The family of this 73-nucleotide RNA sequence is "DUF3800-VIII RNA". From the family's description: Bacteroidetes, Cyanobacteria, Firmicutes, Planctomycetes (1 example), Proteobacteria, Tenericutes (1 example). The family's consensus secondary structure is taken from published work.
[Rfam]
RNA sequence: UUAGCCCUGCAAGUUGCGAAGUCUCAAGUGCCACUUGAGAUUCGAAAGAUUUUCAUAGCAACUGUGGGGCUAU
Numbered sequence: 001u002u003a004g005c006c007c008u009g010c011a012a013g014u015u016g017c018g019a020a021g022u023c024u025c026a027a028g029u030g031c032c033a034c035u036u037g038a039g040a041u042u043c044g045a046a047a048g049a050u051u052u053u054c055a056u057a058g059c060a061a062c063u064g065u066g067g068g069g070c071u072a073u
Base pairs, nucleotide, nucleotide: 002072003071004070005069006068007067008066009065010064012063013062014061015060016059017058021041022040023039024038025037026036027035028034029033
Rfam's curators put it in the seed alignment.